[Rfam]
RNA: Ribosomal protein L10 leader
RNA sequence: GACUGUUAUCAAUAUAUACCACAGACAGCAACGGCCUAUGGCUUAAUCACGUUGCCGAGGUAGAAAGAAACAUUACUCUUUCAUGCUCAUGCUGUCUUUCGGUGUGAGCAUUUUAUUAUGCGGA
Numbered sequence: 001g002a003c004u005g006u007u008a009u010c011a012a013u014a015u016a017u018a019c020c021a022c023a024g025a026c027a028g029c030a031a032c033g034g035c036c037u038a039u040g041g042c043u044u045a046a047u048c049a050c051g052u053u054g055c056c057g058a059g060g061u062a063g064a065a066a067g068a069a070a071c072a073u074u075a076c077u078c079u080u081u082c083a084u085g086c087u088c089a090u091g092c093u094g095u096c097u098u099u100c101g102g103u104g105u106g107a108g109c110a111u112u113u114u115a116u117u118a119u120g121c122g123g124a
Stems, first nucleotide, its partner, number of pairs: 028055006034042003085109010